[Rfam]
RNA sequence: UCCGUGGUAGCUCAACGGUGGAGCAUUCGGCUGUUAACCGAAGGGUUGGAGGUUCGAAUCCUCUCCACGGAG
Numbered sequence: 001u002c003c004g005u006g007g008u009a010g011c012u013c014a015a016c017g018g019u020g021g022a023g024c025a026u027u028c029g030g031c032u033g034u035u036a037a038c039c040g041a042a043g044g045g046u047u048g049g050a051g052g053u054u055c056g057a058a059u060c061c062u063c064u065c066c067a068c069g070g071a072g
Stems, first nucleotide, its partner, number of pairs: 001071007010024004026042005048064005
RNA: tRNA